[Rfam]
RNA sequence: CCGGGCGCCGCGUUCGGGCCCGGCGGGACAUAGAGGGCGCCGGCUCUCAUACCGGCGCUUCUCAUGUCCAGAUCGCUUCGAAAAUGGAGGAUUUGGAAAUGAGAA
Numbered sequence: 001c002c003g004g005g006c007g008c009c010g011c012g013u014u015c016g017g018g019c020c021c022g023g024c025g026g027g028a029c030a031u032a033g034a035g036g037g038c039g040c041c042g043g044c045u046c047u048c049a050u051a052c053c054g055g056c057g058c059u060u061c062u063c064a065u066g067u068c069c070a071g072a073u074c075g076c077u078u079c080g081a082a083a084a085u086g087g088a089g090g091a092u093u094u095g096g097a098a099a100u101g102a103g104a105a
Stems, first nucleotide, its partner, number of pairs: 001023006008017002035060009061103005068096007076089005

The record is a 105-nucleotide RNA sequence from Sphingomonas sp. CL5.1, which matches "Repression of heat shock gene expression (ROSE) element" in Rfam.
NCBI's taxonomy places the organism under Bacteria, Pseudomonadati, Pseudomonadota, Sphingomonadales, Sphingomonas.
The literature on the family includes a 2001 paper in Nucleic Acids Res by Nocker et al., "A mRNA-based thermosensor controls expression of rhizobial heat shock genes".
Its family is annotated with regulation of translation and response to temperature stimulus in the Gene Ontology.
A search with the family's covariance model found it, with a score of 56 bits.
Rfam describes the family as follows. This family represents a 5' UTR cis-regulatory element found in heat shock mRNAs and is known as the ROSE (repression of heat shock gene expression) element. The ROSE element is a negative regulator of heat shock gene expression. The secondary structure is thought to be regulated by temperature.